[Rfam]
RNA: Acido-Lenti-1 RNA
Organism: Prolixibacteraceae bacterium
RNA sequence: CCCGGGAUUGAAAUCCCGGGCUACAAAAUCUACCGAGCCUACGGCUCU
Numbered sequence: 001c002c003c004g005g006g007a008u009u010g011a012a013a014u015c016c017c018g019g020g021c022u023a024c025a026a027a028a029u030c031u032a033c034c035g036a037g038c039c040u041a042c043g044g045c046u047c048u
Base pairs, nucleotide, nucleotide: 001020002019003018004017005016006015007014008013035047036046037045038044039043